RNA sequence: CUCUGGAGAGUGGCGUGAAAGCGCCCGCCGAAGGGAUAACGAUCUCAGGCGCCCGAAACCGGGCAAGGACAGAG
Numbered sequence: 001c002u003c004u005g006g007a008g009a010g011u012g013g014c015g016u017g018a019a020a021g022c023g024c025c026c027g028c029c030g031a032a033g034g035g036a037u038a039a040c041g042a043u044c045u046c047a048g049g050c051g052c053c054c055g056a057a058a059c060c061g062g063g064c065a066a067g068g069a070c071a072g073a074g
Stems, first nucleotide, its partner, number of pairs: 001074005012025004027050003030046002034044002

A member of the RNA family "Glycine riboswitch aptamer" from Pseudogemmobacter blasticus, 74 nucleotides long. Rfam links the family to the GO term glycine biosynthetic process. The pairing is the family consensus, mapped onto this sequence. The source organism's lineage runs through Bacteria, Pseudomonadota, Alphaproteobacteria, Pseudogemmobacter and Pseudogemmobacter blasticus.